Rfam assigns this 65-nucleotide sequence from Tolypothrix sp. NIES-4075 to the family "Nitrogen stress-induced RNA 1". Lineage of the source: Bacteria > Bacillati > Cyanophyceae > Nostocales > Tolypothrix.
[Rfam]
Nucleotides: 065
Stems, first nucleotide, its partner, number of pairs: 002013003027057009037047001
Number, partner (000 for none) and nucleotide at each position: 001000u002013g003012g004011u005000a006000g007000a008000u009000g010000c011004a012003c013002c014000u015000u016000g017000a018000u019000c020000u021000u022000c023000a024000a025000u026000u027057c028056c029055c030054c031053c032052g033051g034050u035049u036000g037047g038000c039000u040000u041000u042000a043000c044000a045000c046000c047037c048000a049035a050034g051033u052032c053031g054030g055029g056028g057027g058000u059000u060000u061000u062000u063000u064000a065000u